[Rfam]
RNA: MIR477 microRNA precursor family
Organism: Nyssa sinensis
RNA sequence: GAAGUUUCCAACUGACCUCAAAGGCUUCCAAUAUUCCAGUCUAAUAUUGGCUUUAAAUAUGGAACGUUGGGAGUCUUUGAGGGCGAUUGAAGACUU
Number, nucleotide and partner (000 for none) at each position: 001g000002a000003a095004g094005u093006u092007u000008c000009c089010a088011a087012c000013u085014g084015a000016c082017c081018u080019c079020a000021a077022a076023g075024g074025c073026u072027u071028c070029c069030a068031a067032u066033a000034u000035u000036c000037c000038a000039g000040u000041c000042u000043a000044a000045u000046a000047u000048u000049g000050g000051c000052u000053u000054u000055a000056a000057a000058u000059a000060u000061g000062g000063a000064a000065c000066g032067u031068u030069g029070g028071g027072a026073g025074u024075c023076u022077u021078u000079g019080a018081g017082g016083g000084c014085g013086a000087u011088u010089g009090a000091a000092g006093a005094c004095u003096u000